Source information
Shown here is a 414-nucleotide RNA from Paraburkholderia phymatum, a member of the family "Bacterial RNase P class A". Ribonuclease P (RNase P) is a ubiquitous endoribonuclease, found in archaea, bacteria and eukarya as well as chloroplasts and mitochondria. Lineage of the source: Bacteria > Pseudomonadota > Betaproteobacteria > Burkholderiaceae > Paraburkholderia phymatum.

[Rfam]
RNA sequence: AAAGUAGGCCAGGCAGUCGCGGCUUCGCUGGUUUCGGCUGGCGAGGGCGAGGAAAGUCCGGACUCCACAGGGCAGGGUGAUGGCUAACGGCCAUCCGUGGCGACACGCGGAACAGGGCAACAGAAAGCAAACCGCCGAUGGCCCGUCGCAAGACGGGAUCAGGUAAGGGUGAAACGGUGCGGUAAGAGCGCACCGCGGCUGCGGCGACGCAGACCGGCACGGUAACCUCCACCCGGAGCAAUUCCAAGUAGGCAGGCGCGCAUCUUCGAGAUGCAGGAUGGGGCCCCCGUCUCGUCUGCGGGUAGGAAGCUUGAGCGCGUCAGCAAUGGCGCGCCUAGAGGAAUGGCUGCCACGCGUGGGGCGCUUUCGGGCGCGUCGCGUGCACAGAAUCCGGCUUAUCGGCCUGCUUUGCCG
Numbered sequence: 001a002a003a004g005u006a007g008g009c010c011a012g013g014c015a016g017u018c019g020c021g022g023c024u025u026c027g028c029u030g031g032u033u034u035c036g037g038c039u040g041g042c043g044a045g046g047g048c049g050a051g052g053a054a055a056g057u058c059c060g061g062a063c064u065c066c067a068c069a070g071g072g073c074a075g076g077g078u079g080a081u082g083g084c085u086a087a088c089g090g091c092c093a094u095c096c097g098u099g100g101c102g103a104c105a106c107g108c109g110g111a112a113c114a115g116g117g118c119a120a121c122a123g124a125a126a127g128c129a130a131a132c133c134g135c136c137g138a139u140g141g142c143c144c145g146u147c148g149c150a151a152g153a154c155g156g157g158a159u160c161a162g163g164u165a166a167g168g169g170u171g172a173a174a175c176g177g178u179g180c181g182g183u184a185a186g187a188g189c190g191c192a193c194c195g196c197g198g199c200u201g202c203g204g205c206g207a208c209g210c211a212g213a214c215c216g217g218c219a220c221g222g223u224a225a226c227c228u229c230c231a232c233c234c235g236g237a238g239c240a241a242u243u244c245c246a247a248g249u250a251g252g253c254a255g256g257c258g259c260g261c262a263u264c265u266u267c268g269a270g271a272u273g274c275a276g277g278a279u280g281g282g283g284c285c286c287c288c289g290u291c292u293c294g295u296c297u298g299c300g301g302g303u304a305g306g307a308a309g310c311u312u313g314a315g316c317g318c319g320u321c322a323g324c325a326a327u328g329g330c331g332c333g334c335c336u337a338g339a340g341g342a343a344u345g346g347c348u349g350c351c352a353c354g355c356g357u358g359g360g361g362c363g364c365u366u367u368c369g370g371g372c373g374c375g376u377c378g379c380g381u382g383c384a385c386a387g388a389a390u391c392c393g394g395c396u397u398a399u400c401g402g403c404c405u406g407c408u409u410u411g412c413c414g
Base pairs, nucleotide, nucleotide: 001410002409003408004407005406006405007404008403009402010401011399012351013350014349015348016347017346018345020049021048023046024045025044026043027042028041029040030039031038054397055396056395058394059393060392061391062390063238064237065236066235070286071285072284073283075234076233077232078231079230080094081093082092083091084090095109096107097106098105099104110229111228115227116226117223118222132168133167134164135163136162139161140160141159143157144156176194177193178192179191180190181189195218196216197215198214199212200211201210202209203208242308243307244306245305252299253298254297255296256295257294277291278290279289280288281287315334316333317332318331319330320329321328322327